[Rfam]
RNA: small nucleolar RNA snoR137
Organism: Medicago truncatula
RNA sequence: GUUGCUUCACAAUGGUGAACCCUCCUUUAUUUUGAAAUGGGAGGUUUCAAGUUUCCCGAAGCAUAAAUUAAACCAACAAAACCAGUCUCUAACGGCUCAGUGUAAUUUAAUUUAGCUACACUACGCCACCUGUCUACUGGUACAUUU
Numbered sequence: 001g002u003u004g005c006u007u008c009a010c011a012a013u014g015g016u017g018a019a020c021c022c023u024c025c026u027u028u029a030u031u032u033u034g035a036a037a038u039g040g041g042a043g044g045u046u047u048c049a050a051g052u053u054u055c056c057c058g059a060a061g062c063a064u065a066a067a068u069u070a071a072a073c074c075a076a077c078a079a080a081a082c083c084a085g086u087c088u089c090u091a092a093c094g095g096c097u098c099a100g101u102g103u104a105a106u107u108u109a110a111u112u113u114a115g116c117u118a119c120a121c122u123a124c125g126c127c128a129c130c131u132g133u134c135u136a137c138u139g140g141u142a143c144a145u146u147u
Base pairs, nucleotide, nucleotide: 003063004062005061006060007059008058016049017048018047019046021044022043023042024041025040081141082140083139084138085137086136094127095126096125099122100121101120102119